[Rfam]
RNA sequence: AAAUGGACUAGGCCGGGCAGCUAGGCCCUGCUCGUAAACCCGCACUCAGGUCUUCAGCGGGGGCCGAAACCCAGUGGCGUCCGGUCGGAACUGAUCGGGUCCUGGGAGCCAACAUAGAAGCCUCGUCCAUCGGGGGCGACGGACCACGGUGACCAUCUGCAGGGAUGUCUCAUCGUGGUUAACCGGCGGUAAUCCAUCAGGCGCGGAAGCGAGCAGUGGACUGCCGGACAGUUGUCGCUCGAUGGGUAGCGGGGUGGAGGAGGCAACCGGGUUUCCCCGAUCAAGGAUGACUGGGCAAUUCUGGGAGUCCUUUU
Numbered sequence: 001a002a003a004u005g006g007a008c009u010a011g012g013c014c015g016g017g018c019a020g021c022u023a024g025g026c027c028c029u030g031c032u033c034g035u036a037a038a039c040c041c042g043c044a045c046u047c048a049g050g051u052c053u054u055c056a057g058c059g060g061g062g063g064c065c066g067a068a069a070c071c072c073a074g075u076g077g078c079g080u081c082c083g084g085u086c087g088g089a090a091c092u093g094a095u096c097g098g099g100u101c102c103u104g105g106g107a108g109c110c111a112a113c114a115u116a117g118a119a120g121c122c123u124c125g126u127c128c129a130u131c132g133g134g135g136g137c138g139a140c141g142g143a144c145c146a147c148g149g150u151g152a153c154c155a156u157c158u159g160c161a162g163g164g165a166u167g168u169c170u171c172a173u174c175g176u177g178g179u180u181a182a183c184c185g186g187c188g189g190u191a192a193u194c195c196a197u198c199a200g201g202c203g204c205g206g207a208a209g210c211g212a213g214c215a216g217u218g219g220a221c222u223g224c225c226g227g228a229c230a231g232u233u234g235u236c237g238c239u240c241g242a243u244g245g246g247u248a249g250c251g252g253g254g255u256g257g258a259g260g261a262g263g264c265a266a267c268c269g270g271g272u273u274u275c276c277c278c279g280a281u282c283a284a285g286g287a288u289g290a291c292u293g294g295g296c297a298a299u300u301c302u303g304g305g306a307g308u309c310c311u312u313u314u
Base pairs, nucleotide, nucleotide: 001314002313003312005310006309007308008307009306011065012064013063014062015033016032017031018030019029020028039061040060041059042058043057070305071304072303073302074301076299079296080295081294082293084291085290086289092283093282094281095280096279097278098277099276101271102270103269104268105267108264109263110262113259115257120255121254122253123252124251125250126249127245128244129243130242131241132240133239134238135236136235137234138233139232141229142180143179144178145177146176147175148174149173150172151171152170154167155166156165157164158163183227184226185225186224187223188222189221193220194219195218196217197216202211203210204209
RNA: Archaeal signal recognition particle RNA